[Rfam]
RNA sequence: GAUAUGAAAGAAAACCAAAUCAGUCGGAUUCACAUUGAGUUCUGUUUUUUUCAAUAAACAAUACAACCAGCUACUUCCGAAUAGC
Numbered sequence: 001g002a003u004a005u006g007a008a009a010g011a012a013a014a015c016c017a018a019a020u021c022a023g024u025c026g027g028a029u030u031c032a033c034a035u036u037g038a039g040u041u042c043u044g045u046u047u048u049u050u051u052c053a054a055u056a057a058a059c060a061a062u063a064c065a066a067c068c069a070g071c072u073a074c075u076u077c078c079g080a081a082u083a084g085c
Stems, first nucleotide, its partner, number of pairs: 001085001003083003
RNA: Small nucleolar RNA R12
Organism: Papaver nudicaule